[Rfam]
RNA sequence: UCUGUGGAUCGUUACAUCAAAUGAGAGUAGUUAGUAAUAACGGGUAACCAAUGUUAUGACAAAAUCAGACGGGAUGAAGCAGAAA
Number, nucleotide and partner (000 for none) at each position: 001u083002c082003u081004g080005u079006g000007g000008a000009u072010c071011g070012u069013u068014a000015c000016a000017u000018c000019a000020a000021a000022u067023g066024a065025g000026a000027g000028u000029a000030g060031u059032u058033a000034g057035u056036a055037a054038u053039a052040a000041c000042g000043g000044g000045u000046a000047a000048c000049c000050a000051a000052u039053g038054u037055u036056a035057u034058g032059a031060c030061a000062a000063a000064a000065u024066c023067a022068g013069a012070c011071g010072g009073g000074a000075u000076g000077a000078a000079g005080c004081a003082g002083a001084a000085a000
Rfam assigns this 85-nucleotide RNA to the family "RAGATH-18 RNA". It is annotated as a small RNA. Actinobacteria, Firmicutes, Fusobacteria, Thermotogae (1 example).